[Rfam]
RNA sequence: AGGGGCAGCCCUCCUUGGGCGUUUCCUCCCUAGACUCGCCGCCCCUGUCCUUCGGGAUGGGGGCGGCCUUUUUUGCGUCUC
Numbered sequence: 001a002g003g004g005g006c007a008g009c010c011c012u013c014c015u016u017g018g019g020c021g022u023u024u025c026c027u028c029c030c031u032a033g034a035c036u037c038g039c040c041g042c043c044c045c046u047g048u049c050c051u052u053c054g055g056g057a058u059g060g061g062g063g064c065g066g067c068c069u070u071u072u073u074u075g076c077g078u079c080u081c
Base pairs, nucleotide, nucleotide: 008020009019010018011017039066040065041064042063043062044061045060046059047058048057049056
Record summary
The family of this 81-nucleotide sequence from Chelatococcus asaccharovorans is "Makes More Granules Regulator RNA (mmgR)". Its family is annotated with response to nitrogen compound, protein binding and DNA-templated transcription, termination in the Gene Ontology. The match comes from Rfam's covariance-model search (56 bits). The literature on the family includes a 2008 paper in BMC Genomics by Valverde et al., "Prediction of Sinorhizobium meliloti sRNA genes and experimental detection in strain 2011".